[Rfam]
Rfam assigns this 96-nucleotide sequence to the family "SAM riboswitch aptamer (S box leader)". Its family is annotated with regulation of gene expression in the Gene Ontology.

RNA sequence: GAUAUAUAAAGAACGAAGGGAGAGAUAAGGCUCAACGAACUUCUGGCAACCUGUUACCACCAACAAGGUGCCCCAACCUUAUUCUAAUGAUAAAUC
Numbered sequence: 001g002a003u004a005u006a007u008a009a010a011g012a013a014c015g016a017a018g019g020g021a022g023a024g025a026u027a028a029g030g031c032u033c034a035a036c037g038a039a040c041u042u043c044u045g046g047c048a049a050c051c052u053g054u055u056a057c058c059a060c061c062a063a064c065a066a067g068g069u070g071c072c073c074c075a076a077c078c079u080u081a082u083u084c085u086a087a088u089g090a091u092a093a094a095u096c
Stems, first nucleotide, its partner, number of pairs: 001096003005092003013044001015043004022033003027080004045072004050068002052065004076088001